[Rfam]
RNA sequence: AAUUCUCUGCGAAUUCAACGUAUUUGCAAAUUUGCUUCCCUCUAAUAUUCGCAGGGAAUACGUAGGACU
Numbered sequence: 001a002a003u004u005c006u007c008u009g010c011g012a013a014u015u016c017a018a019c020g021u022a023u024u025u026g027c028a029a030a031u032u033u034g035c036u037u038c039c040c041u042c043u044a045a046u047a048u049u050c051g052c053a054g055g056g057a058a059u060a061c062g063u064a065g066g067a068c069u
Stems, first nucleotide, its partner, number of pairs: 004057003008053007